Shown here is an 81-nucleotide RNA sequence from Caenorhabditis briggsae, a member of the family "mir-43 microRNA precursor family".
The base pairs follow the family's consensus structure, which was predicted with RNAalifold.
[Rfam]
RNA sequence: UUCUGCCCGUGACAUCAAGAUGCUUGUGAUUAUGCGAAAAUGUUGGGACAUAUCACAGUUUACUUGCUGUCGCAGGCGGAU
Numbered sequence: 001u002u003c004u005g006c007c008c009g010u011g012a013c014a015u016c017a018a019g020a021u022g023c024u025u026g027u028g029a030u031u032a033u034g035c036g037a038a039a040a041u042g043u044u045g046g047g048a049c050a051u052a053u054c055a056c057a058g059u060u061u062a063c064u065u066g067c068u069g070u071c072g073c074a075g076g077c078g079g080a081u
Stems, first nucleotide, its partner, number of pairs: 003079005009073006016066004020061001022059003026056005032051003035047001
The family has 4 seed sequences and 10 matches in Rfam 15.1.
It is one of the family's seed sequences.
A reference for the family is Ruby et al. (2006), "Large-scale sequencing reveals 21U-RNAs and additional microRNAs and endogenous siRNAs in C. elegans", Cell.
Gene Ontology terms of the family: miRNA-mediated post-transcriptional gene silencing and RISC complex.